che1 RNA: a 92-nucleotide sequence from Streptomyces auratus.
The sequence is in the family's curated seed alignment.
Rfam classes the family as a small RNA.
The source organism's lineage runs through Bacteria, Bacillati, Actinomycetota, Kitasatosporales and Streptomyces auratus.

RNA sequence: UGGACAGGGGGGUCUCUGCCCCAUCCGGCAGGGCCUGUCCAGGAGGUUGCGCGAGAGCGUGGCCAGUGGUUGUCGCUCGGGGGUGAUCGCCG
Numbered sequence: 001u002g003g004a005c006a007g008g009g010g011g012g013u014c015u016c017u018g019c020c021c022c023a024u025c026c027g028g029c030a031g032g033g034c035c036u037g038u039c040c041a042g043g044a045g046g047u048u049g050c051g052c053g054a055g056a057g058c059g060u061g062g063c064c065a066g067u068g069g070u071u072g073u074c075g076c077u078c079g080g081g082g083g084u085g086a087u088c089g090c091c092g
Stems, first nucleotide, its partner, number of pairs: 001041008014033007045064008